[Rfam]
RNA: Metazoan signal recognition particle RNA
Organism: Notothenia coriiceps
RNA sequence: GCCGGGUGCAGUGGCGCGCGCCUUGUAAUCCAAGUUACUGAGGCUGAGGCUGGCGGAAGCGUUUGAGCUCAGGGAUCUGAGCUGCAGUGGACUAUGCCGAUCGGGUGUCACACUAAGUUCGGUAUCGAUAUGGUGCUCCUGGGGAGCUCGGACACCAGGUCGUCUAAGGAGAGGUGAAUCGGCCCAAGGCCGGAGACGGAGCAGGCCAAAGCCCCCGUGCCGCUCAGUAGUGGGAUCGCGCCUGUGAAUAGACGCUGUAGAGCAGCCUGUGUAAUACAGCGGGAACCCAGUCUUUU
Numbered sequence: 001g002c003c004g005g006g007u008g009c010a011g012u013g014g015c016g017c018g019c020g021c022c023u024u025g026u027a028a029u030c031c032a033a034g035u036u037a038c039u040g041a042g043g044c045u046g047a048g049g050c051u052g053g054c055g056g057a058a059g060c061g062u063u064u065g066a067g068c069u070c071a072g073g074g075a076u077c078u079g080a081g082c083u084g085c086a087g088u089g090g091a092c093u094a095u096g097c098c099g100a101u102c103g104g105g106u107g108u109c110a111c112a113c114u115a116a117g118u119u120c121g122g123u124a125u126c127g128a129u130a131u132g133g134u135g136c137u138c139c140u141g142g143g144g145a146g147c148u149c150g151g152a153c154a155c156c157a158g159g160u161c162g163u164c165u166a167a168g169g170a171g172a173g174g175u176g177a178a179u180c181g182g183c184c185c186a187a188g189g190c191c192g193g194a195g196a197c198g199g200a201g202c203a204g205g206c207c208a209a210a211g212c213c214c215c216c217g218u219g220c221c222g223c224u225c226a227g228u229a230g231u232g233g234g235a236u237c238g239c240g241c242c243u244g245u246g247a248a249u250a251g252a253c254g255c256u257g258u259a260g261a262g263c264a265g266c267c268u269g270u271g272u273a274a275u276a277c278a279g280c281g282g283g284a285a286c287c288c289a290g291u292c293u294u295u296u
Base pairs, nucleotide, nucleotide: 001044002043003042004023005022006021007020008019009018029041030040046294047293048292049291050290051289052288053287060281061280062279063278067272068271070269071268072267073266077265078264079263082260083259084258085257086256087255088254089253092251093250094249095248097246102244103243104242105241106240107239108238109234111232112231113230114229115228117225120222121221122220123219124218125217126162127161128160129159131157132156133155134154135153138151139150141148142147163169164168171215173213174212175211181207182206183205184204190199191198192197
Dot-bracket structure: (((((((((........)))))).....((.........))))).((((((((......((((...((.((((...(((..((((((((..((((.(....((((((((.(((((.(..((((((((((.(((((..((.((....)).)).))))).))))((...)).(.(((.....((((.....(((....)))....))))...))).).))))))..)..))))).)...))))))).).)))).))))))))..))))))).)).....)))).....))))))))..